[Rfam]
Nucleotides: 084
Stems, first nucleotide, its partner, number of pairs: 001084004006079003
Number, partner (000 for none) and nucleotide at each position: 001084g002083g003082c004081c005000a006079g007078g008077g009000g010000g011000a012000a013000a014000g015000a016000a017000a018000a019000a020000a021000u022000a023000c024000a025000g026000a027000u028000u029000g030000a031000a032000a033000c034000a035000u036000u037000u038000a039000g040000u041000a042000u043000g044000g045000g046000c047000a048000a049000g050000c051000a052000g053000g054000g055000a056000g057000c058000u059000g060000g061000a062000a063000a064000g065000a066000u067000u068000c069000g070000c071000u072000u073000g074000u075000a076000a077008c078007c079006c080000a081004g082003g083002u084001c